[Rfam]
Bacillaceae-1 RNA: a 65-nucleotide RNA from Lentibacillus cibarius. The family's consensus secondary structure is taken from published work.

RNA sequence: CGUGCACGUCGGCAGGCUAGAACCGUCACGUCCUGUGACAAUACCUGCCUAGUACAUCCUGUACG
Numbered sequence: 001c002g003u004g005c006a007c008g009u010c011g012g013c014a015g016g017c018u019a020g021a022a023c024c025g026u027c028a029c030g031u032c033c034u035g036u037g038a039c040a041a042u043a044c045c046u047g048c049c050u051a052g053u054a055c056a057u058c059c060u061g062u063a064c065g
Stems, first nucleotide, its partner, number of pairs: 011049006025039005052064004
The family's RNA type in Rfam is small RNA.